[Rfam]
Nucleotides: 096
Stems, first nucleotide, its partner, number of pairs: 009023002012020001062095003065087002068084005
Number, partner (000 for none) and nucleotide at each position: 001000g002000g003000u004000u005000u006000g007000c008000g009023u010022u011000g012020g013000u014000g015000c016000a017000a018000a019000u020012u021000g022010a023009a024000g025000u026000c027000a028000c029000u030000c031000u032000c033000g034000u035000u036000u037000c038000a039000a040000a041000a042000u043000u044000g045000a046000a047000g048000a049000u050000g051000a052000u053000c054000a055000a056000a057000a058000a059000u060000u061000c062095c063094u064093c065087a066086u067000u068084g069083g070082u071081a072080a073000c074000g075000a076000a077000u078000g079000u080072u081071u082070a083069u084068c085000c086066a087065u088000u089000a090000a091000g092000c093064g094063a095062g096000c